Background:
Shown here is a 265-nucleotide RNA sequence from Pluvianellus socialis, a member of the family "RNase MRP". Rfam links the family to the GO terms rRNA processing, ribonuclease MRP complex and ribonuclease MRP activity. The family has 66 seed sequences and 3,510 matches in Rfam 15.1. From the family's description: RNase MRP is an enzymatically active ribonucleoprotein with two distinct roles in eukaryotes. Clan: RNaseP clan. On this family, see Schmitt et al., FASEB J 1993: "Secondary structure of RNase MRP RNA as predicted by phylogenetic comparison".
[Rfam]
RNA sequence: GGAUGUUCUGAAGACCUGCUCGCUAGGCCACGCACGGAGGACGCCGGUUCCUCACGGGCCCCGCGCCCGCCUAGGGGAAAGUCCCCGGACCGCAGGCAGAGAGUGCCGGGCGCGGCAGCGUCCCGCCCGCCGCCGCCUCACGCCUUUCCCCGCCGAGAGGCCCCCGGGCCGAGCGGGUGAGCGCGGGGCGGGCCCUCGUCACCGCCACAGGCACGCAGGUAGUGCGCAGGCGCACCAACAGCACGGGGCUCACUCUCAGGACAUC
Numbered sequence: 001g002g003a004u005g006u007u008c009u010g011a012a013g014a015c016c017u018g019c020u021c022g023c024u025a026g027g028c029c030a031c032g033c034a035c036g037g038a039g040g041a042c043g044c045c046g047g048u049u050c051c052u053c054a055c056g057g058g059c060c061c062c063g064c065g066c067c068c069g070c071c072u073a074g075g076g077g078a079a080a081g082u083c084c085c086c087g088g089a090c091c092g093c094a095g096g097c098a099g100a101g102a103g104u105g106c107c108g109g110g111c112g113c114g115g116c117a118g119c120g121u122c123c124c125g126c127c128c129g130c131c132g133c134c135g136c137c138u139c140a141c142g143c144c145u146u147u148c149c150c151c152g153c154c155g156a157g158a159g160g161c162c163c164c165c166g167g168g169c170c171g172a173g174c175g176g177g178u179g180a181g182c183g184c185g186g187g188g189c190g191g192g193c194c195c196u197c198g199u200c201a202c203c204g205c206c207a208c209a210g211g212c213a214c215g216c217a218g219g220u221a222g223u224g225c226g227c228a229g230g231c232g233c234a235c236c237a238a239c240a241g242c243a244c245g246g247g248g249c250u251c252a253c254u255c256u257c258a259g260g261a262c263a264u265c
Base pairs, nucleotide, nucleotide: 002265003264004263005262006261007260008259009258010257011256014220015219016218017217018216019215023074024073025072026071027070028069037053038052039051040050041049080250081249083248084247085246086245095107096106097105098104108123109122110121111120112119113118125193126192127191129189130188131187133185139181141179150176151175152174153173160169161168162167222235223234224233225232226231
Dot-bracket structure: .((((((((((..((((((...((((((........(((((.......)))))...............)))))).....[[.[[[[........((((.....))))((((((....)))))).(((.(((.(.....(.(........((((......(((....)))...))))..).)...).))).))).....................)))))).(((((....))))).........]]]]]].....))))))))))